[Rfam]
RNA sequence: GUAGUCAGUAGGUGGGGGGUGAGAACGGCUUCAUACAGGAGCUGAUGCGCAGUUACCCAGCUCCUAUGAGAUGCCUUUCCUCACCCCUUCAC
Numbered sequence: 001g002u003a004g005u006c007a008g009u010a011g012g013u014g015g016g017g018g019g020u021g022a023g024a025a026c027g028g029c030u031u032c033a034u035a036c037a038g039g040a041g042c043u044g045a046u047g048c049g050c051a052g053u054u055a056c057c058c059a060g061c062u063c064c065u066a067u068g069a070g071a072u073g074c075c076u077u078u079c080c081u082c083a084c085c086c087c088u089u090c091a092c
Stems, first nucleotide, its partner, number of pairs: 014088005020083003023079003027075003031071002034068002037065008046055002
The family of this 92-nucleotide RNA sequence from Equus caballus is "mir-337 microRNA precursor family".
On this family, see Kim et al., Proc Natl Acad Sci U S A 2004: "Identification of many microRNAs that copurify with polyribosomes in mammalian neurons".
Taxonomically the source falls in Equus (Eukaryota, Tetrapoda, Amniota, Eutheria).
Its family is annotated with miRNA-mediated post-transcriptional gene silencing, long-term synaptic potentiation and RISC complex in the Gene Ontology.